[Rfam]
A member of the RNA family "MIR834 microRNA precursor family" from Arabidopsis lyrata, 180 nucleotides long. Rfam's curators put it in the seed alignment. Gene Ontology terms of the family: miRNA-mediated post-transcriptional gene silencing and RISC complex. The base pairs follow the family's consensus structure, which was predicted with RNAalifold. NCBI's taxonomy places the organism under Eukaryota, Streptophyta, Mesangiospermae, Brassicaceae, Arabidopsis.
RNA sequence: UUACAGCGACAGCCAAAAUCACCACAGCUUCUGCUACGAACGUGUUAAGCCAUCCUUUUGACCAUUGCUGCACCACUAUUACGGCCAUCACAAGAAAAUCUAUGCAAGUGGAAACAGUGAUAGUAGCGGCUGGCUAAUGACACGUUGGUAGCAGUAGCGGUGGUAAUGUCGAUAGCGUGA
Numbered sequence: 001u002u003a004c005a006g007c008g009a010c011a012g013c014c015a016a017a018a019u020c021a022c023c024a025c026a027g028c029u030u031c032u033g034c035u036a037c038g039a040a041c042g043u044g045u046u047a048a049g050c051c052a053u054c055c056u057u058u059u060g061a062c063c064a065u066u067g068c069u070g071c072a073c074c075a076c077u078a079u080u081a082c083g084g085c086c087a088u089c090a091c092a093a094g095a096a097a098a099u100c101u102a103u104g105c106a107a108g109u110g111g112a113a114a115c116a117g118u119g120a121u122a123g124u125a126g127c128g129g130c131u132g133g134c135u136a137a138u139g140a141c142a143c144g145u146u147g148g149u150a151g152c153a154g155u156a157g158c159g160g161u162g163g164u165a166a167u168g169u170c171g172a173u174a175g176c177g178u179g180a
Base pairs, nucleotide, nucleotide: 007171008170009169010168011167021164022163023162024161025160027158028157029156031154032153033152034151035150036149037148039146040145041144042143043142044141045140046139047138049134050133051132052131067130068129069128070127071126075124076123077122078121079120080119081118082117088111089110090109091108